[Rfam]
RNA: mir-9/mir-79 microRNA precursor family
RNA sequence: CGUGUAUUCUCUUUGGUUAUCUAGCUGUAUGAGUGAAUUUUUAAAAGCCUAAUCAUAAAGCUAGCUUACCGAAGUUAAGACCGA
Numbered sequence: 001c002g003u004g005u006a007u008u009c010u011c012u013u014u015g016g017u018u019a020u021c022u023a024g025c026u027g028u029a030u031g032a033g034u035g036a037a038u039u040u041u042u043a044a045a046a047g048c049c050u051a052a053u054c055a056u057a058a059a060g061c062u063a064g065c066u067u068a069c070c071g072a073a074g075u076u077a078a079g080a081c082c083g084a
Stems, first nucleotide, its partner, number of pairs: 004081002007078002011074007019066001021064006028057005